[Rfam]
RNA sequence: GCCCUGUGGUUGCUGGACGCUGCUGUGCCCGUGCAGUGCUUCAGUUGGGAGGAUGGGCCCACAGUGACUCUGUGACUUACGCAGGGAGGCUGUGACCUGACCUGUGAGCAGCCUCCUCAGCCCUGUCACAGGCACACCC
Numbered sequence: 001g002c003c004c005u006g007u008g009g010u011u012g013c014u015g016g017a018c019g020c021u022g023c024u025g026u027g028c029c030c031g032u033g034c035a036g037u038g039c040u041u042c043a044g045u046u047g048g049g050a051g052g053a054u055g056g057g058c059c060c061a062c063a064g065u066g067a068c069u070c071u072g073u074g075a076c077u078u079a080c081g082c083a084g085g086g087a088g089g090c091u092g093u094g095a096c097c098u099g100a101c102c103u104g105u106g107a108g109c110a111g112c113c114u115c116c117u118c119a120g121c122c123c124u125g126u127c128a129c130a131g132g133c134a135c136a137c138c139c
Base pairs, nucleotide, nucleotide: 001059003057004056007050010047012045013044014043015042016041017040019037020036021035022034023033070131072129073128074127075126076125081121082120084117085116086115088113089112090111091110092109093108